[Rfam]
RNA sequence: AAAUGAGAGGAGGUCAGGAGCAAUAAUGAAAAACGGUUUGUGACAAACAUUUUUCGUUAUUGCUCUUGACCCCCGCCCAAAAGAAAUCUUUU
Dot-bracket structure: ....(.(.((.(((((.(((((((((.((((((.(.((((...))))).)))))).))))))))).))))).)).).)..............